Purine riboswitch aptamer: a 102-nucleotide RNA sequence from Paenibacillus solanacearum. Riboswitches are metabolite binding domains within certain messenger RNAs that serve as precision sensors for their corresponding targets. Allosteric rearrangement of mRNA structure is mediated by ligand binding, and this results in modulation of gene expression. The family's consensus secondary structure is taken from published work. Rfam links the family to the GO term purine nucleobase biosynthetic process. Taxonomically the source falls in Paenibacillus (Bacteria, Bacillota, Bacilli, Caryophanales).
[Rfam]
RNA sequence: CAGAAAAAAGUCGAAUAAUCUCGUAUAAAGUCGGGAAUAUGGCCCGGAAGUUUCUACCCAAAAACCAUAAAUUUUUGGACUACGAGCGAACGAACGAUAAGG
Numbered sequence: 001c002a003g004a005a006a007a008a009a010g011u012c013g014a015a016u017a018a019u020c021u022c023g024u025a026u027a028a029a030g031u032c033g034g035g036a037a038u039a040u041g042g043c044c045c046g047g048a049a050g051u052u053u054c055u056a057c058c059c060a061a062a063a064a065c066c067a068u069a070a071a072u073u074u075u076u077g078g079a080c081u082a083c084g085a086g087c088g089a090a091c092g093a094a095c096g097a098u099a100a101g102g
Base pairs, nucleotide, nucleotide: 020086021085022084023083024082025081031047032046033045034044035043058078059077060076061075062074063073064072